[Rfam]
RNA: SAM-III riboswitch aptamer (SMK box)
Organism: Limosilactobacillus panis
RNA sequence: UUAUGAAGCAAAUUCCCGAUAGGAUUCACGAGUACCCCUUGUGAAGAUGCCUUGUAACCGCAACUACAAAACUAAUGUUAAGUUUCGACUAGAAUAUGGGGGAAUUAAUAAAAAUG
Number, nucleotide and partner (000 for none) at each position: 001u000002u000003a000004u000005g000006a000007a000008g000009c000010a000011a000012a000013u104014u103015c102016c101017c100018g000019a000020u000021a052022g051023g050024a000025u045026u044027c043028a042029c041030g040031a039032g000033u000034a000035c000036c000037c000038c000039u031040u030041g029042u028043g027044a026045a025046g000047a000048u000049g000050c023051c022052u021053u000054g000055u000056a000057a000058c099059c098060g000061c000062a000063a000064c000065u000066a000067c000068a000069a000070a000071a000072c000073u000074a000075a000076u000077g000078u000079u000080a000081a000082g000083u000084u000085u000086c000087g000088a000089c000090u000091a000092g000093a000094a000095u000096a000097u000098g059099g058100g017101g016102g015103a014104a013105u000106u000107a000108a000109u000110a000111a000112a000113a000114a000115u000116g000